The family of this 99-nucleotide sequence from Oryza sativa is "mir-399 microRNA precursor family". Rfam's curators put it in the seed alignment. Rfam's curators write: mir-399 was identified in both Arabidopsis thaliana and Oryza sativa computationally and was later experimentally verified. mir-399 is thought to target mRNAs coding for a phosphatase transporter. The mature sequence is excised from the 3' arm of the hairpin. Rfam links the family to the GO terms RISC complex and miRNA-mediated post-transcriptional gene silencing. NCBI's taxonomy places the organism under Eukaryota, Streptophytina, Embryophyta, Oryzeae, Oryza sativa.
RNA sequence: CCAUGCAUUACUGGGCAGGUCUCCCUUGGCAGUGGCCGAUCGAGCUGAUCAAACCACGCAAAAGCCACUGCCAAAGGAGACUUGCCCAGCAAUGCAGAU
Numbered sequence: 001c002c003a004u005g006c007a008u009u010a011c012u013g014g015g016c017a018g019g020u021c022u023c024c025c026u027u028g029g030c031a032g033u034g035g036c037c038g039a040u041c042g043a044g045c046u047g048a049u050c051a052a053a054c055c056a057c058g059c060a061a062a063a064g065c066c067a068c069u070g071c072c073a074a075a076g077g078a079g080a081c082u083u084g085c086c087c088a089g090c091a092a093u094g095c096a097g098a099u
Stems, first nucleotide, its partner, number of pairs: 005095005011089006017082002021079004027073009